[Rfam]
RNA sequence: UCGAAGUUUCAUCUACAAAUGGAUAAGAUUUUUGUCUUAGUGUAUACGAAAUCGUUGAAACAAGUAGCAAUACCAUUCCUUGAUUUGCAAGACAUGGGGUAUUGCUACUUU
Numbered sequence: 001u002c003g004a005a006g007u008u009u010c011a012u013c014u015a016c017a018a019a020u021g022g023a024u025a026a027g028a029u030u031u032u033u034g035u036c037u038u039a040g041u042g043u044a045u046a047c048g049a050a051a052u053c054g055u056u057g058a059a060a061c062a063a064g065u066a067g068c069a070a071u072a073c074c075a076u077u078c079c080u081u082g083a084u085u086u087g088c089a090a091g092a093c094a095u096g097g098g099g100u101a102u103u104g105c106u107a108c109u110u111u
Stems, first nucleotide, its partner, number of pairs: 008023005062110012075095001079091003
About this RNA:
Rfam assigns this 111-nucleotide RNA from Musa balbisiana to the family "Plastid-psbA-1 3UTR RNA". Rfam classes the family as a cis-regulatory element. Clan: Plastid-psbA 3UTR RNA clan. It scores 89 bits against the family's covariance model. Plastid psbA-1 is a non-coding RNA (ncRNA) present in plastids. It was identified in inverted repeat sequences in the 3 prime untranslate region (3UTR) of photosystem II quinone-binding protein (psbA). Lineage of the source: Eukaryota > Streptophyta > Euphyllophyta > Magnoliopsida > Musa.